[Rfam]
RNA: msiK RNA
RNA sequence: CGGUCGCUCCUUCCACUCGGAUCGUCCGGCACGUUCCUGCCGGUGAAAGGAAGCGCUC
Numbered sequence: 001c002g003g004u005c006g007c008u009c010c011u012u013c014c015a016c017u018c019g020g021a022u023c024g025u026c027c028g029g030c031a032c033g034u035u036c037c038u039g040c041c042g043g044u045g046a047a048a049g050g051a052a053g054c055g056c057u058c
Base pairs, nucleotide, nucleotide: 009050010049011048012047014045015044026043027042028041029040030039031038
Dot-bracket structure: ........((((.((..........((((((......)))))))).))))........